[Rfam]
RNA sequence: CUUGUGGACUAUCAUACCAACUGUAUUAGCGAGCUUCGUGCGAGGCAGGAUGGGCAGAAGCAAGAA
Numbered sequence: 001c002u003u004g005u006g007g008a009c010u011a012u013c014a015u016a017c018c019a020a021c022u023g024u025a026u027u028a029g030c031g032a033g034c035u036u037c038g039u040g041c042g043a044g045g046c047a048g049g050a051u052g053g054g055c056a057g058a059a060g061c062a063a064g065a066a
Stems, first nucleotide, its partner, number of pairs: 001064005009053005021048003029041003
RAGATH-18 RNA: a 66-nucleotide RNA from Secundilactobacillus mixtipabuli.
It scores 46 bits against the family's covariance model.